[Rfam]
RNA sequence: GAGAACUUUAACUUAAAUCGCACACGUAUCGACACAUUACCCGGGGUGCCUGAAAAGGUCGGGUCCAAUGGGGUACGUGGAGGCCUAAC
Numbered sequence: 001g002a003g004a005a006c007u008u009u010a011a012c013u014u015a016a017a018u019c020g021c022a023c024a025c026g027u028a029u030c031g032a033c034a035c036a037u038u039a040c041c042c043g044g045g046g047u048g049c050c051u052g053a054a055a056a057g058g059u060c061g062g063g064u065c066c067a068a069u070g071g072g073g074u075a076c077g078u079g080g081a082g083g084c085c086u087a088a089c
Base pairs, nucleotide, nucleotide: 023079024078025077026076027075028074029073030072035070036069037068038067040063041062042061043060048059049058050057051056
t44 RNA: an 89-nucleotide RNA from Paraferrimonas sedimenticola. The base pairs follow the family's consensus structure, which was predicted with LocARNA. The match comes from Rfam's covariance-model search (73 bits). Taxonomically the source falls in Paraferrimonas (Bacteria, Pseudomonadota, Gammaproteobacteria, Alteromonadales).